[Rfam]
RNA sequence: GCGCGAGUGGCGGAACGGCAGACGCGCUGGCUUCAGGUGCCAGUGUCCGAGAGGGCGUGGGGGUUCAAAUCCCCCCUCGCGCA
Numbered sequence: 001g002c003g004c005g006a007g008u009g010g011c012g013g014a015a016c017g018g019c020a021g022a023c024g025c026g027c028u029g030g031c032u033u034c035a036g037g038u039g040c041c042a043g044u045g046u047c048c049g050a051g052a053g054g055g056c057g058u059g060g061g062g063g064u065u066c067a068a069a070u071c072c073c074c075c076c077u078c079g080c081g082c083a
Stems, first nucleotide, its partner, number of pairs: 001082007010025003027043005059075005

The record is an 83-nucleotide RNA sequence from Arthrobacter sp. PAMC 25486, which matches "tRNA" in Rfam.
The base pairs follow the family's consensus structure, which is taken from published work.
Rfam links the family to the GO term triplet codon-amino acid adaptor activity.
The literature on the family includes a 1997 paper in Nucleic Acids Res by Lowe and Eddy, "tRNAscan-SE: a program for improved detection of transfer RNA genes in genomic sequence".